[Rfam]
RNA sequence: GGUGGAAGUUGCAAACGAGCAACUGGACACUGGUGUCGCCUUACAGGAGGGGGCAUCAAACCACCUAAAGGUGCUGUGUUUAAGAGGCAUGGUGCUGAGCGUUUAGGAAAAGAUAUAGCACGAUUAUAUCAGGU
Numbered sequence: 001g002g003u004g005g006a007a008g009u010u011g012c013a014a015a016c017g018a019g020c021a022a023c024u025g026g027a028c029a030c031u032g033g034u035g036u037c038g039c040c041u042u043a044c045a046g047g048a049g050g051g052g053g054c055a056u057c058a059a060a061c062c063a064c065c066u067a068a069a070g071g072u073g074c075u076g077u078g079u080u081u082a083a084g085a086g087g088c089a090u091g092g093u094g095c096u097g098a099g100c101g102u103u104u105a106g107g108a109a110a111a112g113a114u115a116u117a118g119c120a121c122g123a124u125u126a127u128a129u130c131a132g133g134u
Base pairs, nucleotide, nucleotide: 001031002030003029004028032057033056034055035054036053037052039050040049041048042047062133064107065106066105067104068103069102070096071095073093074092075091077089078088079087080086112130113129114128115127116126117125